[Rfam]
RNA sequence: UGAGUAAAUCAGGUGGUCGCGGGCGCCAGGCCGAAAGGUGGCGUCUGAGGAAAGUCCGAGCUCCGCAGGGCAGGGUGCUGGGUAAUACCCAGUGGGGGCGACCCUAAGGAAAGUGCCACAGAAAUGUAGACCGCCACUUCUCAAGUGGUAAGGAUGGAACGGUGCGGUAAGAGCGCACCAGCGGCCGGGUGACCGGCCGGCUAGGUAAACCCCACCCGGAGCAAGACCGAAUAGGGGAACAUUUGCGGCGGCCCGUCGUUGAUUCCCGGGUAAGGUCGCUUGAGGCGCGCUGGCAACAGCCGUCCCAGAUAGAUGAUCAUCCACGACAGAACUCGGCUUACGAUUUGCUCACUAA
Numbered sequence: 001u002g003a004g005u006a007a008a009u010c011a012g013g014u015g016g017u018c019g020c021g022g023g024c025g026c027c028a029g030g031c032c033g034a035a036a037g038g039u040g041g042c043g044u045c046u047g048a049g050g051a052a053a054g055u056c057c058g059a060g061c062u063c064c065g066c067a068g069g070g071c072a073g074g075g076u077g078c079u080g081g082g083u084a085a086u087a088c089c090c091a092g093u094g095g096g097g098g099c100g101a102c103c104c105u106a107a108g109g110a111a112a113g114u115g116c117c118a119c120a121g122a123a124a125u126g127u128a129g130a131c132c133g134c135c136a137c138u139u140c141u142c143a144a145g146u147g148g149u150a151a152g153g154a155u156g157g158a159a160c161g162g163u164g165c166g167g168u169a170a171g172a173g174c175g176c177a178c179c180a181g182c183g184g185c186c187g188g189g190u191g192a193c194c195g196g197c198c199g200g201c202u203a204g205g206u207a208a209a210c211c212c213c214a215c216c217c218g219g220a221g222c223a224a225g226a227c228c229g230a231a232u233a234g235g236g237g238a239a240c241a242u243u244u245g246c247g248g249c250g251g252c253c254c255g256u257c258g259u260u261g262a263u264u265c266c267c268g269g270g271u272a273a274g275g276u277c278g279c280u281u282g283a284g285g286c287g288c289g290c291u292g293g294c295a296a297c298a299g300c301c302g303u304c305c306c307a308g309a310u311a312g313a314u315g316a317u318c319a320u321c322c323a324c325g326a327c328a329g330a331a332c333u334c335g336g337c338u339u340a341c342g343a344u345u346u347g348c349u350c351a352c353u354a355a
Stems, first nucleotide, its partner, number of pairs: 001351010012321007020047009052339003056336005061221004068254004073217005078092005093107001094105004108212002113210002115206003131153002133149007161179006181201001182199007225277004235267005245259005284304004289300004

Shown here is a 355-nucleotide sequence from Pelotomaculum isophthalicicum, a member of the family "Bacterial RNase P class A". By type it is a ribozyme. Pairs were carried over by alignment from the consensus structure, which is taken from published work. Ribonuclease P (RNase P) is a ubiquitous endoribonuclease, found in archaea, bacteria and eukarya as well as chloroplasts and mitochondria. Its best characterised activity is the generation of mature 5'-ends of tRNAs by cleaving the 5'-leader elements of precursor-tRNAs. Cellular RNase Ps are ribonucleoproteins.